RNA: Small nucleolar RNA R64/Z200 family
RNA sequence: AUCUACGAUGACGAAUUAUGAAAUCUUGAAAUGUCAGACUUGAGAGAUCGUUUGAAAUCUAUGAGAAGAAAAUUUAUUUUACUGAGUCAGAC
Dot-bracket structure: .(((((.......................................(((........)))..........................)).))).
Numbered sequence: 001a002u003c004u005a006c007g008a009u010g011a012c013g014a015a016u017u018a019u020g021a022a023a024u025c026u027u028g029a030a031a032u033g034u035c036a037g038a039c040u041u042g043a044g045a046g047a048u049c050g051u052u053u054g055a056a057a058u059c060u061a062u063g064a065g066a067a068g069a070a071a072a073u074u075u076a077u078u079u080u081a082c083u084g085a086g087u088c089a090g091a092c
Stems, first nucleotide, its partner, number of pairs: 002091003005087002046059003